Shown here is a 95-nucleotide RNA from Salinibacterium sp. dk2585, a member of the family "Glycine riboswitch aptamer". It scores 62 bits against the family's covariance model. About the family: This family represents the bacterial glycine riboswitch.
[Rfam]
Nucleotides: 095
Stems, first nucleotide, its partner, number of pairs: 006090008020039006041075003044071002048069003054063002
Number, partner (000 for none) and nucleotide at each position: 001000u002000c003000a004000g005000g006090c007089g008088a009087u010086g011085c012084g013083g014000g015000a016000g017000a018000g019000c020039u021038c022037c023036g024035a025034a026000c027000c028000a029000c030000a031000g032000g033000g034025u035024u036023u037022g038021g039020g040000c041075a042074c043073c044071g045070a046000a047000g048069g049068a050067g051000c052000a053000a054063u055062c056000c057000u058000c059000u060000c061000c062055g063054a064000a065000a066000u067050c068049u069048c070045u071044c072000a073043g074042g075041u076000a077000u078000g079000c080000g081000u082000a083013c084012c085011g086010c087009a088008u089007c090006g091000a092000a093000c094000a095000g